Rfam assigns this 69-nucleotide sequence from Streptomyces oceani to the family "ASpks TB sRNA".

[Rfam]
RNA sequence: CUUGGCGGAACCGAGCCACAGGGGGUGUUCCCGCUGGGCGCCGUAGGUGGCCAGCAGCGCCUGCGCCUC
Numbered sequence: 001c002u003u004g005g006c007g008g009a010a011c012c013g014a015g016c017c018a019c020a021g022g023g024g025g026u027g028u029u030c031c032c033g034c035u036g037g038g039c040g041c042c043g044u045a046g047g048u049g050g051c052c053a054g055c056a057g058c059g060c061c062u063g064c065g066c067c068u069c
Base pairs, nucleotide, nucleotide: 014026016024017023032065033064034063039059040058041050042049043048
The match comes from Rfam's covariance-model search (52 bits).